[Rfam]
RNA: A. fumigatus snoRNA Afu_263
RNA sequence: UUUCAUGAUGAGCACCAUACCCAUAAAGCAUAGUUCACCUGAGAUCUUCGAUCCUUGAACGACAACAGUACCAUCACCAUUUUUUCUGAUA
Numbered sequence: 001u002u003u004c005a006u007g008a009u010g011a012g013c014a015c016c017a018u019a020c021c022c023a024u025a026a027a028g029c030a031u032a033g034u035u036c037a038c039c040u041g042a043g044a045u046c047u048u049c050g051a052u053c054c055u056u057g058a059a060c061g062a063c064a065a066c067a068g069u070a071c072c073a074u075c076a077c078c079a080u081u082u083u084u085u086c087u088g089a090u091a
Stems, first nucleotide, its partner, number of pairs: 008018003033060005043053004